Rfam assigns this 102-nucleotide sequence from Heyndrickxia ginsengihumi to the family "Purine riboswitch aptamer". The family is grouped with related families in Rfam's "Purine riboswitches".
[Rfam]
RNA sequence: AACUAAAUACAUAUCAUUUCUCGUAUAUAUUUGGAAAUAUGGUCCAAACGUUUCUACCAAACUACCGUAAAUGGUUUGACUACGAGUGUACGCUACUUUUAC
Numbered sequence: 001a002a003c004u005a006a007a008u009a010c011a012u013a014u015c016a017u018u019u020c021u022c023g024u025a026u027a028u029a030u031u032u033g034g035a036a037a038u039a040u041g042g043u044c045c046a047a048a049c050g051u052u053u054c055u056a057c058c059a060a061a062c063u064a065c066c067g068u069a070a071a072u073g074g075u076u077u078g079a080c081u082a083c084g085a086g087u088g089u090a091c092g093c094u095a096c097u098u099u100u101a102c
Base pairs, nucleotide, nucleotide: 018088020086021085022084023083024082025081030048031047032046033045034044035043058078059077060076061075062074063073064072

Annotation:
For this family Rfam cites "Riboswitches Control Fundamental Biochemical Pathways in Bacillus subtilis and Other Bacteria" (Mandal et al., Cell, 2003). The base pairs follow the family's consensus structure, which is taken from published work. Rfam's curators write: Riboswitches are metabolite binding domains within certain messenger RNAs that serve as precision sensors for their corresponding targets. Allosteric rearrangement of mRNA structure is mediated by ligand binding, and this results in modulation of gene expression.